[Rfam]
RNA sequence: CUGAAGGAUUAUGUCGAGGAGUCGAAUGAGGAGGUAACGCUCUGAAAGGCUUCCCCUGCGUCGAAUAGCACGCUGUUUAGUAAGAAAUUGUGUGUUAUAAGCUCGGUUAAUAGGCGCAAGAAUUUACAGUAACAGUCCAGCCGACGAAAGCCUACCCGAUGGGGUGGUGUAAAUCAUGGUGCUUGGGUUGAACAG
Numbered sequence: 001c002u003g004a005a006g007g008a009u010u011a012u013g014u015c016g017a018g019g020a021g022u023c024g025a026a027u028g029a030g031g032a033g034g035u036a037a038c039g040c041u042c043u044g045a046a047a048g049g050c051u052u053c054c055c056c057u058g059c060g061u062c063g064a065a066u067a068g069c070a071c072g073c074u075g076u077u078u079a080g081u082a083a084g085a086a087a088u089u090g091u092g093u094g095u096u097a098u099a100a101g102c103u104c105g106g107u108u109a110a111u112a113g114g115c116g117c118a119a120g121a122a123u124u125u126a127c128a129g130u131a132a133c134a135g136u137c138c139a140g141c142c143g144a145c146g147a148a149a150g151c152c153u154a155c156c157c158g159a160u161g162g163g164g165u166g167g168u169g170u171a172a173a174u175c176a177u178g179g180u181g182c183u184u185g186g187g188u189u190g191a192a193c194a195g
Stems, first nucleotide, its partner, number of pairs: 018053006031043001033041002054187003061106004065098009075088004113183005122174006129145002135141001150168003154165004
RNA: Group II catalytic intron D1-D4-5
Organism: Virgibacillus salarius